Group II catalytic intron D1-D4-6: a 264-nucleotide RNA sequence from Candidatus Magnetoglobus multicellularis. Pairs were carried over by alignment from the consensus structure. From the family's description: Group II introns are found in rRNA, tRNA and mRNA of organelles in fungi, plants and protists, and also in mRNA in bacteria.

RNA sequence: AAAGUCCUUGUCAGGUAAGGAUUAGCCAUCCACCUGUACCGAGUCUUGCGUGAUUGGGAAGGAUAGAUAUACCAUCGAACGACCCACACGAAGCGUACACAGGGAAUCAUAUAGGCCACAGGGAGAAUGUGCUCUCCUGAAGCAUGGUACAGCGUCGUAAAAGGUGAUUAGUAGCAAUCGGUUAUGUUGUCAAUGAAACAGAAGCCAACACUAAAGAAUCAUUAAUGGCAAGAUUCUGGAUGGAUUGUCGGCGUCAUCAGGGCG
Numbered sequence: 001a002a003a004g005u006c007c008u009u010g011u012c013a014g015g016u017a018a019g020g021a022u023u024a025g026c027c028a029u030c031c032a033c034c035u036g037u038a039c040c041g042a043g044u045c046u047u048g049c050g051u052g053a054u055u056g057g058g059a060a061g062g063a064u065a066g067a068u069a070u071a072c073c074a075u076c077g078a079a080c081g082a083c084c085c086a087c088a089c090g091a092a093g094c095g096u097a098c099a100c101a102g103g104g105a106a107u108c109a110u111a112u113a114g115g116c117c118a119c120a121g122g123g124a125g126a127a128u129g130u131g132c133u134c135u136c137c138u139g140a141a142g143c144a145u146g147g148u149a150c151a152g153c154g155u156c157g158u159a160a161a162a163g164g165u166g167a168u169u170a171g172u173a174g175c176a177a178u179c180g181g182u183u184a185u186g187u188u189g190u191c192a193a194u195g196a197a198a199c200a201g202a203a204g205c206c207a208a209c210a211c212u213a214a215a216g217a218a219u220c221a222u223u224a225a226u227g228g229c230a231a232g233a234u235u236c237u238g239g240a241u242g243g244a245u246u247g248u249c250g251g252c253g254u255c256a257u258c259a260g261g262g263c264g
Stems, first nucleotide, its partner, number of pairs: 012036004019031004023231001025229002039103002043100002046097001047095002049090004055086004061080001152254006174248006180206003185200004211242001212240001215237006